[Rfam]
RNA sequence: AAAACGCUGUCGAGUUUGCAUAAAGCAAACUCUCAUUAUUGUAUGCACUUUUUCAGCUUUCGCUUACAAAAGUGCGGAAAUUCGGCAAUCCUCAAAAUUUGAAAAUUCUUGCGGUUGCAGAAUUUGUAG
Number, nucleotide and partner (000 for none) at each position: 001a000002a000003a000004a000005c000006g000007c000008u000009g000010u000011c000012g032013a031014g030015u029016u028017u027018g026019c025020a000021u000022a000023a000024a000025g019026c018027a017028a016029a015030c014031u013032c012033u000034c000035a000036u000037u000038a000039u000040u000041g000042u000043a000044u000045g075046c074047a073048c072049u071050u070051u069052u068053u000054c000055a000056g000057c000058u000059u000060u000061c000062g000063c000064u000065u000066a000067c000068a052069a051070a050071a049072g048073u047074g046075c045076g000077g000078a000079a000080a123081u122082u121083c120084g000085g118086c117087a116088a115089u000090c114091c113092u000093c000094a109095a000096a107097a106098u105099u104100u000101g000102a000103a000104a099105a098106u097107u096108c000109u094110u000111g000112c000113g091114g090115u088116u087117g086118c085119a000120g083121a082122a081123u080124u000125u000126g000127u000128a000129g000

Notes:
This 129-nucleotide sequence from Treponema pedis belongs to the Rfam family "TD-1 RNA". By type it is a cis-regulatory element. NCBI's taxonomy places the organism under Bacteria, Pseudomonadati, Spirochaetia, Treponematales, Treponema pedis.